[Rfam]
RNA: mir-1805 microRNA precursor family
RNA sequence: GGAAUAUUCUGGGAGUUGUAGUCUUUCAAACAGAGCUUCACAAGGACAAACCUGUAUUGGAACACUACAGCUCCCUGAACUUCC
Numbered sequence: 001g002g003a004a005u006a007u008u009c010u011g012g013g014a015g016u017u018g019u020a021g022u023c024u025u026u027c028a029a030a031c032a033g034a035g036c037u038u039c040a041c042a043a044g045g046a047c048a049a050a051c052c053u054g055u056a057u058u059g060g061a062a063c064a065c066u067a068c069a070g071c072u073c074c075c076u077g078a079a080c081u082u083c084c
Stems, first nucleotide, its partner, number of pairs: 001084004007079003012074011024062006030055004